A member of the RNA family "Small nucleolar RNA R16" from Kalanchoe fedtschenkoi, 88 nucleotides long. The match comes from Rfam's covariance-model search (72 bits).
RNA sequence: UCUGGCAUAUGAUGAAAUCUGUUUUUUUAUGCUUAACACUGAAUCUUCAUGUGUAGACAGAAUACUCCGCUUAUUAUCUGAUGCCAAU
Numbered sequence: 001u002c003u004g005g006c007a008u009a010u011g012a013u014g015a016a017a018u019c020u021g022u023u024u025u026u027u028u029a030u031g032c033u034u035a036a037c038a039c040u041g042a043a044u045c046u047u048c049a050u051g052u053g054u055a056g057a058c059a060g061a062a063u064a065c066u067c068c069g070c071u072u073a074u075u076a077u078c079u080g081a082u083g084c085c086a087a088u
Stems, first nucleotide, its partner, number of pairs: 003086005

About this RNA:
It is annotated as a C/D-box small nucleolar RNA. The family's consensus secondary structure was predicted with PFOLD.